[Rfam]
RNA sequence: UGUUUUUAAAGGCAUAGUCGUUGAAAGGCGAUGACGCAAAGCUAUAGGGGCUAAGGUGAGGGAAUCACUAUGCCAGCCAGUUGCAAAC
Numbered sequence: 001u002g003u004u005u006u007u008a009a010a011g012g013c014a015u016a017g018u019c020g021u022u023g024a025a026a027g028g029c030g031a032u033g034a035c036g037c038a039a040a041g042c043u044a045u046a047g048g049g050g051c052u053a054a055g056g057u058g059a060g061g062g063a064a065u066c067a068c069u070a071u072g073c074c075a076g077c078c079a080g081u082u083g084c085a086a087a088c
Stems, first nucleotide, its partner, number of pairs: 012037002017032006040082004047078002049074003056068004